Record summary:
Shown here is a 67-nucleotide RNA sequence from Cnephaeus nilssonii, a member of the family "mir-9256 microRNA precursor family". Rfam links the family to the GO terms RISC complex and miRNA-mediated post-transcriptional gene silencing. The base pairs follow the family's consensus structure, which was predicted with RNAalifold. It scores 82 bits against the family's covariance model.
RNA sequence: GUCUACACUGAGUGGCCAGAUUAUUAUGAUCUCUGAUUGCAUAAUAAUCUGACCACUCAGUGUAUAA
Number, nucleotide and partner (000 for none) at each position: 001g000002u000003c000004u064005a063006c062007a061008c060009u059010g058011a057012g056013u055014g054015g053016c000017c051018a000019g049020a048021u047022u046023a045024u044025u043026a042027u041028g040029a000030u000031c000032u000033c000034u000035g000036a000037u000038u000039g000040c028041a027042u026043a025044a024045u023046a022047a021048u020049c019050u000051g017052a000053c015054c014055a013056c012057u011058c010059a009060g008061u007062g006063u005064a004065u000066a000067a000